[Rfam]
RNA sequence: AGGACUCAAUUUUUUUUAUAUAUAUAUAUAUAUUGGACUUAGAGAAUAGUGCAAAAAAUAAAUCCUCUUUUGGAACCUAGAACUCAUUGUUCAGUAUGAGUUUUGAUACAUACAAGCAAGAAUGUU
Numbered sequence: 001a002g003g004a005c006u007c008a009a010u011u012u013u014u015u016u017u018a019u020a021u022a023u024a025u026a027u028a029u030a031u032a033u034u035g036g037a038c039u040u041a042g043a044g045a046a047u048a049g050u051g052c053a054a055a056a057a058a059u060a061a062a063u064c065c066u067c068u069u070u071u072g073g074a075a076c077c078u079a080g081a082a083c084u085c086a087u088u089g090u091u092c093a094g095u096a097u098g099a100g101u102u103u104u105g106a107u108a109c110a111u112a113c114a115a116g117c118a119a120g121a122a123u124g125u126u
Stems, first nucleotide, its partner, number of pairs: 002052001004050003011043001014037003018033004023028001062123002065120002069116004078105010